Notes: This 108-nucleotide RNA sequence from Virgibacillus oceani belongs to the Rfam family "SAM riboswitch aptamer (S box leader)".

[Rfam]
RNA sequence: CUCUUAUUCAGAGUUGGUGGAGGGACAGACCCAAUGAAGCCCAGCAACCGUCACACGAUGUGAAAAGGUGCUAACCUGACGCAAGGAUAUUUCCUUGAACAAUAAGAG
Numbered sequence: 001c002u003c004u005u006a007u008u009c010a011g012a013g014u015u016g017g018u019g020g021a022g023g024g025a026c027a028g029a030c031c032c033a034a035u036g037a038a039g040c041c042c043a044g045c046a047a048c049c050g051u052c053a054c055a056c057g058a059u060g061u062g063a064a065a066a067g068g069u070g071c072u073a074a075c076c077u078g079a080c081g082c083a084a085g086g087a088u089a090u091u092u093c094c095u096u097g098a099a100c101a102a103u104a105a106g107a108g
Base pairs, nucleotide, nucleotide: 001108002107003106004105005104006103007102008101013042016041017040018039022032023031024030026081029077043072044071045070046069048068049067051063052062053061082097083096084095085094086093087092
Rfam's curators write: The SAM riboswitch is found upstream of a number of genes which code for proteins involved in methionine or cysteine biosynthesis in Gram-positive bacteria. The SAM riboswitch acts at the level of transcription termination control. The predicted structure consists of a complex stem-loop region followed by a single stem loop terminator region. An alternative and mutually exclusive form involves bases in the 3' segment of helix 1 with those in the 5' region of helix 5 to form a structure termed the anti-terminator form. This entry represents the conserved core of the complex structure involving helices 1-4.
The source organism's lineage runs through Bacteria, Bacillati, Bacillota, Bacilli and Virgibacillus.
Pairs were carried over by alignment from the consensus structure, which is taken from published work.
The match comes from Rfam's covariance-model search (77 bits).